[Rfam]
RNA: sRNA-Xcc1
RNA sequence: GGCCGGGUGUGAGGCUAAUACAAGACCCGUAAGGGGAAUACGCCCGCUGCACCCUGUGCGCAGUUUAGAGCCCCCGGCCGCCCUUCG
Numbered sequence: 001g002g003c004c005g006g007g008u009g010u011g012a013g014g015c016u017a018a019u020a021c022a023a024g025a026c027c028c029g030u031a032a033g034g035g036g037a038a039u040a041c042g043c044c045c046g047c048u049g050c051a052c053c054c055u056g057u058g059c060g061c062a063g064u065u066u067a068g069a070g071c072c073c074c075c076g077g078c079c080g081c082c083c084u085u086c087g
Stems, first nucleotide, its partner, number of pairs: 001079007009071001013044003016040002026035003046064005